[Rfam]
RNA sequence: CCCCCAUGAGGAAACCCCCACGCGUCUGACCCCCCCACCCCCCACCAGAACCUGCCCAAGGUUGAACCCACUGGUGACGGCGGGGGGGGGGAGAGGAGGACGCCUGGUCCUGAGUGGACGGUCUGAGGGGG
Numbered sequence: 001c002c003c004c005c006a007u008g009a010g011g012a013a014a015c016c017c018c019c020a021c022g023c024g025u026c027u028g029a030c031c032c033c034c035c036c037a038c039c040c041c042c043c044a045c046c047a048g049a050a051c052c053u054g055c056c057c058a059a060g061g062u063u064g065a066a067c068c069c070a071c072u073g074g075u076g077a078c079g080g081c082g083g084g085g086g087g088g089g090g091g092a093g094a095g096g097a098g099g100a101c102g103c104c105u106g107g108u109c110c111u112g113a114g115u116g117g118a119c120g121g122u123c124u125g126a127g128g129g130g131g
Stems, first nucleotide, its partner, number of pairs: 001130004

A member of the RNA family "Small nucleolar RNA SNORD22" from Pelecanoides urinatrix, 131 nucleotides long.
Lineage of the source: Eukaryota > Deuterostomia > Euteleostomi > Archelosauria > Pelecanoides.
On this family, see Tycowski et al., Nature 1996: "A mammalian gene with introns instead of exons generating stable RNA products".
Gene Ontology terms of the family: RNA processing and nucleolus.
The match comes from Rfam's covariance-model search (66 bits).